[Rfam]
RNA: nhaA-I RNA
Organism: Oxalicibacterium solurbis
RNA sequence: GGGUGUUCGCGCUGCAUUCGCAGCCGACAGGCAACGCGAUGGUCGGGCCGCCACG
Numbered sequence: 001g002g003g004u005g006u007u008c009g010c011g012c013u014g015c016a017u018u019c020g021c022a023g024c025c026g027a028c029a030g031g032c033a034a035c036g037c038g039a040u041g042g043u044c045g046g047g048c049c050g051c052c053a054c055g
Base pairs, nucleotide, nucleotide: 005028006027008026009025011024012023013022014021037055038054040053041052042051043050